Background:
This 78-nucleotide RNA from Desulfuromonas soudanensis belongs to the Rfam family "c-di-GMP-I riboswitch aptamer". The base pairs follow the family's consensus structure, which is taken from published work. Lineage of the source: Bacteria > Pseudomonadati > Desulfuromonadia > Desulfuromonadales > Desulfuromonas.
RNA sequence: CUGCCGAAAGGGCAGAGCCGGAGCGAUCCGGUGACGCAAAGUUUCAGGUCCGCUCUGGCGGAUGGCUGGACUGUCGAA
Numbered sequence: 001c002u003g004c005c006g007a008a009a010g011g012g013c014a015g016a017g018c019c020g021g022a023g024c025g026a027u028c029c030g031g032u033g034a035c036g037c038a039a040a041g042u043u044u045c046a047g048g049u050c051c052g053c054u055c056u057g058g059c060g061g062a063u064g065g066c067u068g069g070a071c072u073g074u075c076g077a078a
Stems, first nucleotide, its partner, number of pairs: 012037002017032006040072004045068003048063006